[Rfam]
RNA: Small nucleolar RNA SNORD111
Organism: Dipodomys ordii
RNA sequence: CAGCCUGGAAUGAUGAUUCACAUUCAUGUCUCUUCUCUGAUAAACUCUUGAAGAAAAUCAUAUGUAUCUGAUCAGGCUG
Numbered sequence: 001c002a003g004c005c006u007g008g009a010a011u012g013a014u015g016a017u018u019c020a021c022a023u024u025c026a027u028g029u030c031u032c033u034u035c036u037c038u039g040a041u042a043a044a045c046u047c048u049u050g051a052a053g054a055a056a057a058u059c060a061u062a063u064g065u066a067u068c069u070g071a072u073c074a075g076g077c078u079g
Base pairs, nucleotide, nucleotide: 001079002078003077004076005075